[Rfam]
RNA sequence: ACUUUACAAGGUCGUGGAUUAUUGUAUAAUUUGCGACCUUAACUUGCGAGAGCAAGCUGAUGGUGCUUAGCCUAUCUAAGCCCCGUCCAAGACCGUAGGUGAAUAAGUUUUCUUAUUCUUAAUAAAAACCUACGUAGAUGGUGAACAGACAGAAUUUUCUGCUUCUGGACACCUUAGGCUCAGAAGAUUGCUACUUGCGAUGCAAGCGGUGAGUUUUUUGAGGUUUUUUGUAAAUUCCACUUCGGUGGAGUGUAUCAGGAGCUAAAACCA
Numbered sequence: 001a002c003u004u005u006a007c008a009a010g011g012u013c014g015u016g017g018a019u020u021a022u023u024g025u026a027u028a029a030u031u032u033g034c035g036a037c038c039u040u041a042a043c044u045u046g047c048g049a050g051a052g053c054a055a056g057c058u059g060a061u062g063g064u065g066c067u068u069a070g071c072c073u074a075u076c077u078a079a080g081c082c083c084c085g086u087c088c089a090a091g092a093c094c095g096u097a098g099g100u101g102a103a104u105a106a107g108u109u110u111u112c113u114u115a116u117u118c119u120u121a122a123u124a125a126a127a128a129c130c131u132a133c134g135u136a137g138a139u140g141g142u143g144a145a146c147a148g149a150c151a152g153a154a155u156u157u158u159c160u161g162c163u164u165c166u167g168g169a170c171a172c173c174u175u176a177g178g179c180u181c182a183g184a185a186g187a188u189u190g191c192u193a194c195u196u197g198c199g200a201u202g203c204a205a206g207c208g209g210u211g212a213g214u215u216u217u218u219u220g221a222g223g224u225u226u227u228u229u230g231u232a233a234a235u236u237c238c239a240c241u242u243c244g245g246u247g248g249a250g251u252g253u254a255u256c257a258g259g260a261g262c263u264a265a266a267a268c269c270a
Stems, first nucleotide, its partner, number of pairs: 003266004008040015043056005059087005065081006094134007101118007140173004146167004150161004179222010190210003194206005223262006230255003234251007
The family of this 270-nucleotide RNA from Actinobacillus pleuropneumoniae is "Actinobacillus sRNA 08". NCBI's taxonomy places the organism under Bacteria, Pseudomonadota, Pasteurellales, Actinobacillus pleuropneumoniae, Actinobacillus pleuropneumoniae serovar 5. For this family Rfam cites "A computational strategy for the search of regulatory small RNAs in Actinobacillus pleuropneumoniae" (Rossi et al., RNA, 2016). Rfam classes the family as a small RNA.